Shown here is a 249-nucleotide sequence from Mytilus galloprovincialis, a member of the family "RNase MRP". The literature on the family includes a 1993 paper in FASEB J by Schmitt et al., "Secondary structure of RNase MRP RNA as predicted by phylogenetic comparison". Rfam 15.1 lists 3,510 matches to the family in 2,315 species.
RNA sequence: GUACUUCUCCAAUACUUGCUAAUUGAGGCUACGAACUGAGACCCAGUGUCUCCAAAAGCCUUGGGAAAAGUCCCCAGACCAAGGGCAGAAAGUGUCCAGCAGUAGUACACUGCAUCCUGGCCCAAGUCCUCUUUACCAGCCGUGAGGUCUUUGGACUGAGCUGAGGAUGGGUCAGGUGUUAGUCAUAGCACAGUCAUGCAAGUACUACCUAUGGGGUAGGAACUCAAUGGGGCUUAGUCAGGGGAAGUG
Numbered sequence: 001g002u003a004c005u006u007c008u009c010c011a012a013u014a015c016u017u018g019c020u021a022a023u024u025g026a027g028g029c030u031a032c033g034a035a036c037u038g039a040g041a042c043c044c045a046g047u048g049u050c051u052c053c054a055a056a057a058g059c060c061u062u063g064g065g066a067a068a069a070g071u072c073c074c075c076a077g078a079c080c081a082a083g084g085g086c087a088g089a090a091a092g093u094g095u096c097c098a099g100c101a102g103u104a105g106u107a108c109a110c111u112g113c114a115u116c117c118u119g120g121c122c123c124a125a126g127u128c129c130u131c132u133u134u135a136c137c138a139g140c141c142g143u144g145a146g147g148u149c150u151u152u153g154g155a156c157u158g159a160g161c162u163g164a165g166g167a168u169g170g171g172u173c174a175g176g177u178g179u180u181a182g183u184c185a186u187a188g189c190a191c192a193g194u195c196a197u198g199c200a201a202g203u204a205c206u207a208c209c210u211a212u213g214g215g216g217u218a219g220g221a222a223c224u225c226a227a228u229g230g231g232g233c234u235u236a237g238u239c240a241g242g243g244g245a246a247g248u249g
Stems, first nucleotide, its partner, number of pairs: 002249009014203006023064007038052005068235003072232004084096004099113004116176008127167001129165001137163004147156003205219006